Rfam assigns this 302-nucleotide sequence from Scenedesmus sp. NREL 46B-D3 to the family "RNase MRP". A search with the family's covariance model found it, with a score of 69 bits. The source organism's lineage runs through Eukaryota, Viridiplantae, Chlorophyta, core chlorophytes and Scenedesmus.
[Rfam]
RNA sequence: GCGCAGCACGGAGGGCCACUCCGGUGGACAAGUGAAGGUGCCUCAUGAGCUCUCCCUGCUCGACACCUCAGCAGCAGGGAUCCCCAAGCAGCCAGGCCGAUACCCCGAACCACAGCGAUGACAAACCACCGGGCGAAAGUCCCCGGGUCCUGAGGCAGAAAGUGCCAGCCCUAGCAGGCAGGUCCCCUGAGCGCUGCUGUUCCACCAGCCGCCUCGGGGCAGCUCACCGCAGCAACAGUCAUGUAGCCAGCGGGGGCCGCAAGGCCCUCGUGAACGCAACGGGGCUUACUCCCGUGCUGACG
Number, nucleotide and partner (000 for none) at each position: 001g000002c302003g301004c299005a298006g297007c296008a295009c294010g293011g292012a000013g000014g248015g247016c246017c000018a244019c243020u133021c132022c131023g130024g129025u128026g127027g000028a000029c000030a000031a000032g000033u000034g000035a000036a000037g000038g000039u000040g000041c000042c000043u000044c000045a000046u000047g000048a000049g000050c000051u000052c000053u000054c000055c000056c000057u000058g000059c000060u000061c000062g000063a000064c000065a000066c000067c000068u000069c000070a000071g000072c000073a000074g000075c000076a000077g000078g000079g000080a000081u000082c000083c000084c000085c000086a000087a000088g000089c000090a000091g000092c000093c000094a000095g000096g000097c000098c000099g000100a000101u000102a000103c000104c000105c000106c000107g000108a000109a000110c000111c000112a000113c000114a000115g000116c000117g000118a000119u000120g000121a000122c000123a000124a000125a000126c000127c026128a025129c024130c023131g022132g021133g020134c000135g000136a000137a287138a286139g285140u000141c284142c283143c282144c281145g000146g000147g000148u000149c000150c000151u000152g000153a000154g166155g165156c164157a163158g000159a000160a000161a000162g000163u157164g156165c155166c154167a000168g179169c178170c177171c000172u000173a000174g000175c000176a000177g170178g169179c168180a000181g220182g000183u218184c000185c000186c000187c216188u000189g214190a000191g212192c211193g000194c000195u000196g209197c208198u207199g206200u000201u000202c000203c000204a000205c000206c199207a198208g197209c196210c000211g192212c191213c000214u189215c000216g187217g000218g183219g000220c181221a000222g000223c000224u000225c000226a000227c000228c000229g000230c000231a000232g000233c000234a000235a000236c000237a000238g000239u000240c000241a000242u000243g019244u018245a000246g016247c015248c014249a000250g271251c270252g269253g268254g267255g266256g265257c264258c000259g000260c000261a000262a000263g000264g257265c256266c255267c254268u253269c252270g251271u250272g000273a000274a000275c000276g000277c000278a000279a000280c000281g144282g143283g142284g141285c139286u138287u137288a000289c000290u000291c000292c011293c010294g009295u008296g007297c006298u005299g004300a000301c003302g002